Background: A member of the RNA family "sRNA-Xcc1" from Oxalobacteraceae bacterium CAVE-383, 85 nucleotides long. The family's RNA type in Rfam is small RNA. A search with the family's covariance model found it, with a score of 66 bits.

RNA sequence: GGCCGGGUAGCGCGCAGUCAUACAAGACCUUCGGGGAAAACUGCGGACCGCCUGUAGCGGCAUUCAAGUACCCGGCCACCCUCUC
Number, nucleotide and partner (000 for none) at each position: 001g077002g076003c075004c074005g073006g072007g071008u070009a069010g000011c000012g000013c045014g044015c043016a042017g000018u040019c000020a000021u000022a000023c000024a000025a000026g000027a000028c035029c034030u000031u000032c000033g000034g029035g028036g000037a000038a000039a000040a018041c000042u016043g015044c014045g013046g000047a000048c060049c059050g058051c057052c000053u000054g000055u000056a000057g051058c050059g049060g048061c000062a000063u000064u000065c000066a000067a000068g000069u009070a008071c007072c006073c005074g004075g003076c002077c001078a000079c000080c000081c000082u000083c000084u000085c000